The family of this 163-nucleotide RNA sequence from Kluyvera cryocrescens is "sroC RNA".
The family's RNA type in Rfam is small RNA.
The source organism's lineage runs through Bacteria, Pseudomonadati, Pseudomonadota, Enterobacterales and Kluyvera.
About the family: This family consists of a number of bacterial sroC RNA genes of around 160 bases in length. sroC is found in several Enterobacterial species. It base-pairs with GcvB. This interaction triggers the degradation of GcvB by RNase E, alleviating the GcvB-mediated mRNA repression of other amino acid-related transport and metabolic genes.
[Rfam]
RNA sequence: ACUAAUUAAAACAACAGGGUGGAAUAAUCUGCCCUCUCGAUUGUAGCUCAGCACGGACAGACUAUAAGUCAGGUGGUCGUUCCCCACCUGGCCUGAAUACCGCAAAACGCUGUUCAACAAUCUUCGAGGGUAGCAGGAGUCCUGCUACCCUUUUUUUUCUGGA
Numbered sequence: 001a002c003u004a005a006u007u008a009a010a011a012c013a014a015c016a017g018g019g020u021g022g023a024a025u026a027a028u029c030u031g032c033c034c035u036c037u038c039g040a041u042u043g044u045a046g047c048u049c050a051g052c053a054c055g056g057a058c059a060g061a062c063u064a065u066a067a068g069u070c071a072g073g074u075g076g077u078c079g080u081u082c083c084c085c086a087c088c089u090g091g092c093c094u095g096a097a098u099a100c101c102g103c104a105a106a107a108c109g110c111u112g113u114u115c116a117a118c119a120a121u122c123u124u125c126g127a128g129g130g131u132a133g134c135a136g137g138a139g140u141c142c143u144g145c146u147a148c149c150c151u152u153u154u155u156u157u158u159c160u161g162g163a
Stems, first nucleotide, its partner, number of pairs: 017034004021029002035129005040121005046115001054102003058095003068092009
Annotation: Pairs were carried over by alignment from the consensus structure, which was predicted with PFOLD.